[Rfam]
chrB-b RNA: a 51-nucleotide RNA sequence. Rfam classes the family as a cis-regulatory element. The family's consensus secondary structure is taken from published work.

RNA sequence: CCGGGUCGAACGCAGACACCCGGUAGCCAAGACAUCCGUCUCAAGUGCUGC
Number, nucleotide and partner (000 for none) at each position: 001c023002c022003g021004g020005g019006u018007c000008g000009a000010a000011c000012g051013c050014a049015g048016a000017c000018a006019c005020c004021c003022g002023g001024u000025a000026g000027c000028c000029a000030a000031g040032a039033c038034a000035u000036c000037c000038g033039u032040c031041u000042c000043a000044a000045g000046u000047g000048c015049u014050g013051c012